[Rfam]
Nucleotides: 021
Stems, first nucleotide, its partner, number of pairs: 001013003006021005
Number, partner (000 for none) and nucleotide at each position: 001013c002012g003011u004000g005000g006021c007020c008019a009018u010017c011003a012002c013001g014000a015000u016000a017010g018009a019008u020007g021006g